Group II catalytic intron D1-D4-3: a 173-nucleotide RNA sequence from Oceanispirochaeta sp. M1. The source organism's lineage runs through Bacteria, Pseudomonadati, Spirochaetales, Spirochaetaceae and Oceanispirochaeta. Rfam's curators write: Group II introns are found in rRNA, tRNA and mRNA of organelles in fungi, plants and protists, and also in mRNA in bacteria.
RNA sequence: UCCAUUGUGAGGUGGAAUCUGAAGGAAGCUGAACGCAAAGCACUGCCUCGACGUACAGAAAUCACAUACAAGGCAUAUUACUCGGAUAAGAAGGCUAAUUUCUUCAAAGUCCCAUACCUAUACGGAUGGGUAAUAUGUAAAUGUGGCGGGGAUAAGUGUGAAGGUGGAUGUGC
Numbered sequence: 001u002c003c004a005u006u007g008u009g010a011g012g013u014g015g016a017a018u019c020u021g022a023a024g025g026a027a028g029c030u031g032a033a034c035g036c037a038a039a040g041c042a043c044u045g046c047c048u049c050g051a052c053g054u055a056c057a058g059a060a061a062u063c064a065c066a067u068a069c070a071a072g073g074c075a076u077a078u079u080a081c082u083c084g085g086a087u088a089a090g091a092a093g094g095c096u097a098a099u100u101u102c103u104u105c106a107a108a109g110u111c112c113c114a115u116a117c118c119u120a121u122a123c124g125g126a127u128g129g130g131u132a133a134u135a136u137g138u139a140a141a142u143g144u145g146g147c148g149g150g151g152a153u154a155a156g157u158g159u160g161a162a163g164g165u166g167g168a169u170g171u172g173c
Base pairs, nucleotide, nucleotide: 001016002015003014004013005012006011028173029172032169035165036164040159041158042157043156044155046151047150048149049148050147062146063145064144065143066142067141073138074137075136077134078133079132080131081130082129083128084112085111086110087109090105091104092103093102

The pairing is the family consensus, mapped onto this sequence.